A member of the RNA family "mir-234 microRNA precursor family" from Toxocara canis, 67 nucleotides long. The family's consensus secondary structure was predicted with RNAalifold. A search with the family's covariance model found it, with a score of 65 bits.
RNA sequence: ACAACAGGUAUUCUCCGGUAAUGACAUUGUCGUUUAAAACCUGUUAUUGCUUGAGAAUACAAAUUGU
Numbered sequence: 001a002c003a004a005c006a007g008g009u010a011u012u013c014u015c016c017g018g019u020a021a022u023g024a025c026a027u028u029g030u031c032g033u034u035u036a037a038a039a040c041c042u043g044u045u046a047u048u049g050c051u052u053g054a055g056a057a058u059a060c061a062a063a064u065u066g067u
Base pairs, nucleotide, nucleotide: 008060009059010058011057012056013055017051018050019049020048021047022046023045024044025043026042